[Rfam]
RNA sequence: UGGGUAGUAUCCUUAAAGAACUGCACCAUAGUGUUAUUAAUGUUUAAAAUUUCUGCUCAUAUCCUUUGAAUGAGACAGCUAG
Numbered sequence: 001u002g003g004g005u006a007g008u009a010u011c012c013u014u015a016a017a018g019a020a021c022u023g024c025a026c027c028a029u030a031g032u033g034u035u036a037u038u039a040a041u042g043u044u045u046a047a048a049a050u051u052u053c054u055g056c057u058c059a060u061a062u063c064c065u066u067u068g069a070a071u072g073a074g075a076c077a078g079c080u081a082g
Stems, first nucleotide, its partner, number of pairs: 001028003004024005010019002053078003056074005062069002
RNA: pan motif
Organism: Clostridium pasteurianum